[Rfam]
RNA sequence: GCCUGAGUGGCGGAAUUGGUAGACGCACCUGAUUCAAAAUCAGGCGCCUUCGGGUGUGCCGGUUCGAGUCCGGCCUUAGGCA
Numbered sequence: 001g002c003c004u005g006a007g008u009g010g011c012g013g014a015a016u017u018g019g020u021a022g023a024c025g026c027a028c029c030u031g032a033u034u035c036a037a038a039a040u041c042a043g044g045c046g047c048c049u050u051c052g053g054g055u056g057u058g059c060c061g062g063u064u065c066g067a068g069u070c071c072g073g074c075c076u077u078a079g080g081c082a
Stems, first nucleotide, its partner, number of pairs: 001081007010026003028044005058074005
The record is an 82-nucleotide RNA from Mesocricetibacter intestinalis, which matches "tRNA" in Rfam.
Rfam links the family to the GO term triplet codon-amino acid adaptor activity.
The family's RNA type in Rfam is transfer RNA.